Shown here is a 102-nucleotide RNA from Microcebus murinus, a member of the family "Y RNA".

RNA sequence: GGCUGGUCCGAGUGCAGUGGUGUUUACAACUAAUUGAUCAUAACCAGUUAGAGAUUACUUUGUUCCUUCUCCACUUCCAUUGCUUCACUCGGUCAGUUUAAA
Dot-bracket structure: ((((((((.((..(.(((((.......(((.((.........................)).)))............)))))....)..))))))))))....
Numbered sequence: 001g002g003c004u005g006g007u008c009c010g011a012g013u014g015c016a017g018u019g020g021u022g023u024u025u026a027c028a029a030c031u032a033a034u035u036g037a038u039c040a041u042a043a044c045c046a047g048u049u050a051g052a053g054a055u056u057a058c059u060u061u062g063u064u065c066c067u068u069c070u071c072c073a074c075u076u077c078c079a080u081u082g083c084u085u086c087a088c089u090c091g092g093u094c095a096g097u098u099u100a101a102a
Stems, first nucleotide, its partner, number of pairs: 001098008010090002014086001016081005028064003032060002
Lineage of the source: Eukaryota > Chordata > Craniata > Dipnotetrapodomorpha > Microcebus.